[Rfam]
RNA sequence: CGCGGAGUAGAGCAGUUGGUAGCUCGUCAGGCUCAUAACCUGGAGGCCGGUGGUUCGAGUCCAUCCUCCGCAA
Number, nucleotide and partner (000 for none) at each position: 001c000002g071003c070004g069005g068006a067007g066008u000009a000010g025011a024012g023013c022014a000015g000016u000017u000018g000019g000020u000021a000022g013023c012024u011025c010026g000027u043028c042029a041030g040031g039032c000033u000034c000035a000036u000037a000038a000039c031040c030041u029042g028043g027044a000045g000046g000047c000048c000049g065050g064051u063052g062053g061054u000055u000056c000057g000058a000059g000060u000061c053062c052063a051064u050065c049066c007067u006068c005069c004070g003071c002072a000073a000
RNA: tRNA